[Rfam]
RNA: Small nucleolar RNA U109
RNA sequence: CCACAUCAUGUGCUCUUUUCCUAUAGGGCACAUGUACUUUUACAAAUGCAAUAUAGACCAAAGGAGUUAUCAGGGCUGACAGCCUUUAAGAACAGGCUGAGUGGUAGUAUAAUACUCCUACAUGA
Numbered sequence: 001c002c003a004c005a006u007c008a009u010g011u012g013c014u015c016u017u018u019u020c021c022u023a024u025a026g027g028g029c030a031c032a033u034g035u036a037c038u039u040u041u042a043c044a045a046a047u048g049c050a051a052u053a054u055a056g057a058c059c060a061a062a063g064g065a066g067u068u069a070u071c072a073g074g075g076c077u078g079a080c081a082g083c084c085u086u087u088a089a090g091a092a093c094a095g096g097c098u099g100a101g102u103g104g105u106a107g108u109a110u111a112a113u114a115c116u117c118c119u120a121c122a123u124g125a
Stems, first nucleotide, its partner, number of pairs: 009032008063118004075105002080099006
Dot-bracket structure: ........((((((((........))))))))..............................((((........((...((((((........))))))....)).........)))).......